This 62-nucleotide RNA from Herbaspirillum sp. YR522 belongs to the Rfam family "Betaproteobacteria toxic small RNA". Rfam's curators write: Overexpression in amino aid rich medium attenuates growth, suggesting role in repressing amino acid intake and metabolism. The base pairs follow the family's consensus structure, which was predicted with WAR. On this family, see Kimelman et al., Genome Res 2012: "A vast collection of microbial genes that are toxic to bacteria". Lineage of the source: Bacteria > Pseudomonadati > Betaproteobacteria > Burkholderiales > Herbaspirillum.
RNA sequence: UGUCUCCUCCUCCCUCUUUAGGAAGGAUUAGCCCCGCAGCCCAAAGCUGCGGGGCUUUUUUU
Numbered sequence: 001u002g003u004c005u006c007c008u009c010c011u012c013c014c015u016c017u018u019u020a021g022g023a024a025g026g027a028u029u030a031g032c033c034c035c036g037c038a039g040c041c042c043a044a045a046g047c048u049g050c051g052g053g054g055c056u057u058u059u060u061u062u
Stems, first nucleotide, its partner, number of pairs: 008027004013022002031055008